[Rfam]
A member of the RNA family "Small nucleolar RNA SNORD121A" from Sciurus carolinensis, 79 nucleotides long.
RNA sequence: CUGGAAAAGACGAUGAUGUACUUCCAAGCACAUAUCUGAGUUGUAUGUGUGGACAGCACAAGAACUGAGUCUUUUCCAC
Numbered sequence: 001c002u003g004g005a006a007a008a009g010a011c012g013a014u015g016a017u018g019u020a021c022u023u024c025c026a027a028g029c030a031c032a033u034a035u036c037u038g039a040g041u042u043g044u045a046u047g048u049g050u051g052g053a054c055a056g057c058a059c060a061a062g063a064a065c066u067g068a069g070u071c072u073u074u075u076c077c078a079c
Stems, first nucleotide, its partner, number of pairs: 002078005008072004

It is annotated as a C/D-box small nucleolar RNA. A search with the family's covariance model found it, with a score of 67 bits.